[Rfam]
RNA sequence: UAGUCGAAAAGGCAAACUUAUCGAAAGGUAGGGACGCAAAGCUGCAGGCCUUCCGGUUGUUAAACCGAUGGCGGCUGGGCUGCCGAA
Numbered sequence: 001u002a003g004u005c006g007a008a009a010a011g012g013c014a015a016a017c018u019u020a021u022c023g024a025a026a027g028g029u030a031g032g033g034a035c036g037c038a039a040a041g042c043u044g045c046a047g048g049c050c051u052u053c054c055g056g057u058u059g060u061u062a063a064a065c066c067g068a069u070g071g072c073g074g075c076u077g078g079g080c081u082g083c084c085g086a087a
Stems, first nucleotide, its partner, number of pairs: 012037002017032006040081004045077003048072003055066004
Background
Shown here is an 87-nucleotide RNA from Paenibacillus oceani, a member of the family "c-di-GMP-I riboswitch aptamer". NCBI's taxonomy places the organism under Bacteria, Bacillota, Caryophanales, Paenibacillaceae, Paenibacillus. Pairs were carried over by alignment from the consensus structure, which is taken from published work.